[Rfam]
RNA sequence: GGAGCAAUAGGGAGGGAUUGCAAUCCAGCCUUAGGAAAAGAAACCUGCCAUGGGAGUCUUGGAGAUUGGCGACUGUCCUGAUAACUUA
Numbered sequence: 001g002g003a004g005c006a007a008u009a010g011g012g013a014g015g016g017a018u019u020g021c022a023a024u025c026c027a028g029c030c031u032u033a034g035g036a037a038a039a040g041a042a043a044c045c046u047g048c049c050a051u052g053g054g055a056g057u058c059u060u061g062g063a064g065a066u067u068g069g070c071g072a073c074u075g076u077c078c079u080g081a082u083a084a085c086u087u088a
Stems, first nucleotide, its partner, number of pairs: 002087003007082002010079004015074002018071001021068005029062002038060004044054004
RNA: mir-9014 microRNA precursor family